Notes
This 296-nucleotide RNA from Pterocles burchelli belongs to the Rfam family "7SK RNA". From the family's description: 7SK was discovered as an abundant small nuclear RNA in the mid-70s but a possible function has only recently been suggested. Two independent studies have found that 7SK RNA binds the CDK9/cyclin T complex (known as elongation factor P-TEFb). P-TEFb activates transcription by phosphorylating the C-terminal domain of RNA polymerase II. This process is negatively regulated by the 7SK RNP. The secondary structure of 7SK RNA shown here was proposed by Wasserman and Steitz on the basis of chemical modification and enzymatic cleavage experiments. The match comes from Rfam's covariance-model search (69 bits). On this family, see Wassarman and Steitz, Mol Cell Biol 1991: "Structural analyses of the 7SK ribonucleoprotein (RNP), the most abundant human small RNP of unknown function". Its Rfam clan is "7SK clan".
RNA sequence: AAAUCUGGGGCAGCAGAGUGAAAGUCUGUCUCCUCAUUGAUCACUGGAGUAGACCUGGCUGGUCUGGCUGGCUAGGGGAAUUUUUCUUCUCUCCUCACAACAUCUUUCUGCAAACCUCACAAAGCUGCACACUGAGACGAGGAGUACCAUGCCCUGUGUCAGGCACAGCUCUGGCUCCUUCUAGACCCUCCCAACAAGAUUAAAGUCUUUUUGUAGAACACGGAGCAGCCAAGCCUCCAAGUCUUGAGACGCGUCCAAAUGAAGGUCUGUAUACUGACUGCAGUUCACCUUUCAUU
Numbered sequence: 001a002a003a004u005c006u007g008g009g010g011c012a013g014c015a016g017a018g019u020g021a022a023a024g025u026c027u028g029u030c031u032c033c034u035c036a037u038u039g040a041u042c043a044c045u046g047g048a049g050u051a052g053a054c055c056u057g058g059c060u061g062g063u064c065u066g067g068c069u070g071g072c073u074a075g076g077g078g079a080a081u082u083u084u085u086c087u088u089c090u091c092u093c094c095u096c097a098c099a100a101c102a103u104c105u106u107u108c109u110g111c112a113a114a115c116c117u118c119a120c121a122a123a124g125c126u127g128c129a130c131a132c133u134g135a136g137a138c139g140a141g142g143a144g145u146a147c148c149a150u151g152c153c154c155u156g157u158g159u160c161a162g163g164c165a166c167a168g169c170u171c172u173g174g175c176u177c178c179u180u181c182u183a184g185a186c187c188c189u190c191c192c193a194a195c196a197a198g199a200u201u202a203a204a205g206u207c208u209u210u211u212u213g214u215a216g217a218a219c220a221c222g223g224a225g226c227a228g229c230c231a232a233g234c235c236u237c238c239a240a241g242u243c244u245u246g247a248g249a250c251g252c253g254u255c256c257a258a259a260u261g262a263a264g265g266u267c268u269g270u271a272u273a274c275u276g277a278c279u280g281c282a283g284u285u286c287a288c289c290u291u292u293c294a295u296u
Base pairs, nucleotide, nucleotide: 001105003103006097007096008095009094010093012090013089017087018086021084022083023082024081025080027078029076030075032071033070034067035066036065039064040063041062042061044058045057113145115142116141117140118139122133124132168234169233170232175228176227178225179224180223181222189217190216194214195213196212197211198210258296259295261292262291263290264289265288267283268282269281270280